[Rfam]
RNA: Small nucleolar RNA SNORD112
RNA sequence: UGGGCCAGUGAUGAGAAAGUGUCUAUGAACAAAGGAUCGUGAUUAAUCCAGUUCUGCGCAAAAUACUGAGGUCCAUU
Numbered sequence: 001u002g003g004g005c006c007a008g009u010g011a012u013g014a015g016a017a018a019g020u021g022u023c024u025a026u027g028a029a030c031a032a033a034g035g036a037u038c039g040u041g042a043u044u045a046a047u048c049c050a051g052u053u054c055u056g057c058g059c060a061a062a063a064u065a066c067u068g069a070g071g072u073c074c075a076u077u
Stems, first nucleotide, its partner, number of pairs: 001075006